[Rfam]
A member of the RNA family "MIR2275 microRNA precursor family" from Aquilegia coerulea, 98 nucleotides long. The base pairs follow the family's consensus structure, which was predicted with RNAalifold. Lineage of the source: Eukaryota > Embryophyta > Mesangiospermae > Thalictroideae > Aquilegia. The family has 13 seed sequences and 785 matches in Rfam 15.1.
RNA sequence: AAGUUGAAUGUGAGAAUUGGAGGAACUUGAACCAAUAUAUAUUAUUAUGACAAUUUGGUGCAUUGGUUCAAUUUUCUCCAAUAUCUCACGUUCAAUCU
Numbered sequence: 001a002a003g004u005u006g007a008a009u010g011u012g013a014g015a016a017u018u019g020g021a022g023g024a025a026c027u028u029g030a031a032c033c034a035a036u037a038u039a040u041a042u043u044a045u046u047a048u049g050a051c052a053a054u055u056u057g058g059u060g061c062a063u064u065g066g067u068u069c070a071a072u073u074u075u076c077u078c079c080a081a082u083a084u085c086u087c088a089c090g091u092u093c094a095a096u097c098u
Base pairs, nucleotide, nucleotide: 004095005094006093007092008091011088012087013086014085016082017081018080019079020078021077023075024074025073027071028070029069030068032066033065